[Rfam]
RNA sequence: AAAAGCAAUAGAGGUAGCGAUGUAAAUGAGUAAUUCGCGGAGCCGGCGGGCUUUGAAACGAAUGAAAGGUAACCAUCGCCGAACGGGACGAUCCGGCGGGAUCGUGUCGUGGGGAUGCAGAAAAUAUCUGUAUCACUCCUUCUUACGAAGUGGCGCUAUUAUUAUA
Numbered sequence: 001a002a003a004a005g006c007a008a009u010a011g012a013g014g015u016a017g018c019g020a021u022g023u024a025a026a027u028g029a030g031u032a033a034u035u036c037g038c039g040g041a042g043c044c045g046g047c048g049g050g051c052u053u054u055g056a057a058a059c060g061a062a063u064g065a066a067a068g069g070u071a072a073c074c075a076u077c078g079c080c081g082a083a084c085g086g087g088a089c090g091a092u093c094c095g096g097c098g099g100g101a102u103c104g105u106g107u108c109g110u111g112g113g114g115a116u117g118c119a120g121a122a123a124a125u126a127u128c129u130g131u132a133u134c135a136c137u138c139c140u141u142c143u144u145a146c147g148a149a150g151u152g153g154c155g156c157u158a159u160u161a162u163u164a165u166a
Stems, first nucleotide, its partner, number of pairs: 007160005017079006023072001025070001033063005083110004088105007111137002114134008139150004
RNA: Lysine riboswitch aptamer